[Rfam]
Nucleotides: 075
Base pairs, nucleotide, nucleotide: 002075003074005071006070007069009067010066011063012062013061014060015059016058017054018053019052022047023046024045025044026043029042030041031040032039033038
Number, partner (000 for none) and nucleotide at each position: 001000u002075g003074u004000g005071c006070u007069g008000a009067a010066c011063u012062c013061c014060a015059g016058u017054u018053c019052u020000g021000g022047g023046u024045g025044a026043g027000u028000u029042u030041c031040u032039g033038g034000g035000a036000a037000a038033c039032c040031a041030g042029a043026c044025u045024c046023a047022u048000u049000c050000g051000g052019g053018g054017a055000g056000a057000a058016a059015c060014u061013g062012g063011a064000c065000u066010g067009u068000c069007u070006g071005g072000c073000a074003g075002c

About this RNA: This 75-nucleotide RNA from Eptesicus fuscus belongs to the Rfam family "mir-9230 microRNA precursor family". Taxonomically the source falls in Eptesicus (Eukaryota, Chordata, Euteleostomi, Sarcopterygii). It is one of the family's seed sequences.